[Rfam]
Description: The family of this 131-nucleotide RNA from Probosciger aterrimus is "U11 spliceosomal RNA". Rfam links the family to the GO terms U11 snRNP, pre-mRNA 5'-splice site binding and mRNA 5'-splice site recognition. The base pairs follow the family's consensus structure, which is taken from published work.
RNA sequence: AAAAAGGGCUUCUGCCGUGCGUGGCACGGGGGGGCUCCGCAGCCGCUCCCGCGGAAUCGACAUCAAGAGAUUUCGGAAGCACAAUUUUUGCGGUGUGGGGGUUGCCGGUAACCGCUUGUUGCGGCGCCCUC
Dot-bracket structure: .......((((((((((....)))))((((((((((....)))).))))))(((((((..........))))))))))))..................((((.((((..(((.....))).))))))))..